[Rfam]
RNA sequence: UCAUAAGUAUAUUUGAUGCAAUGAAAAAUAAUACAGCAAAUACCUGGUGGUGGAAUAGCUUACGUCAACACAACGUGAAGUAACACUGCACUCGUAUAAAAUAAUAUACAAAGGCUUGUC
Numbered sequence: 001u002c003a004u005a006a007g008u009a010u011a012u013u014u015g016a017u018g019c020a021a022u023g024a025a026a027a028a029u030a031a032u033a034c035a036g037c038a039a040a041u042a043c044c045u046g047g048u049g050g051u052g053g054a055a056u057a058g059c060u061u062a063c064g065u066c067a068a069c070a071c072a073a074c075g076u077g078a079a080g081u082a083a084c085a086c087u088g089c090a091c092u093c094g095u096a097u098a099a100a101a102u103a104a105u106a107u108a109c110a111a112a113g114g115c116u117u118g119u120c
Base pairs, nucleotide, nucleotide: 036102040097041096042095043094047089049087050086051085052084056082057081060078061077062076064074065073
This 120-nucleotide RNA sequence from Gillisia limnaea belongs to the Rfam family "Bacteroidete tryptophan peptide leader RNA". A search with the family's covariance model found it, with a score of 56 bits. Rfam links the family to the GO terms regulation of gene expression and S-adenosylmethionine metabolic process. By type it is a cis-regulatory leader.